[Rfam]
RNA sequence: UGCGAGUAUUUUACGAUUCAGAAGCAACUGUUUCUUGUACAGAUUGUGUAUUAUACU
Numbered sequence: 001u002g003c004g005a006g007u008a009u010u011u012u013a014c015g016a017u018u019c020a021g022a023a024g025c026a027a028c029u030g031u032u033u034c035u036u037g038u039a040c041a042g043a044u045u046g047u048g049u050a051u052u053a054u055a056c057u
Stems, first nucleotide, its partner, number of pairs: 018037001020035006
Rfam assigns this 57-nucleotide RNA sequence from Gossypium mustelinum to the family "Plastid-rps18 3UTR RNA". By type it is a cis-regulatory element. Rfam's curators write: Plastid rps18 is a non-coding RNA (ncRNA) present in plastids. It was identified as a short stem-loop motif in the 3 prime untranslate region (3UTR) of rps18 gene. The family's consensus secondary structure was predicted with LocARNA. A reference for the family is Richter et al. (2023), "Retrograde signaling in plants: A critical review focusing on the GUN pathway and beyond", Plant Commun. A search with the family's covariance model found it, with a score of 70 bits. The organism belongs to Gossypium, within Eukaryota. The family has 238 seed sequences and 1,462 matches in Rfam 15.1.